The record is a 53-nucleotide RNA from Lutibaculum baratangense, which matches "ffh sRNA" in Rfam. It scores 53 bits against the family's covariance model. Pairs were carried over by alignment from the consensus structure, which is taken from published work.

RNA sequence: GGCGCGAGGGGUCGCCACCCGUCAGCGAGGGUUCGCCCACGGGUGUCGUCGGC
Numbered sequence: 001g002g003c004g005c006g007a008g009g010g011g012u013c014g015c016c017a018c019c020c021g022u023c024a025g026c027g028a029g030g031g032u033u034c035g036c037c038c039a040c041g042g043g044u045g046u047c048g049u050c051g052g053c
Stems, first nucleotide, its partner, number of pairs: 016045007025036004
Dot-bracket structure: ...............(((((((..((((....))))..)))))))........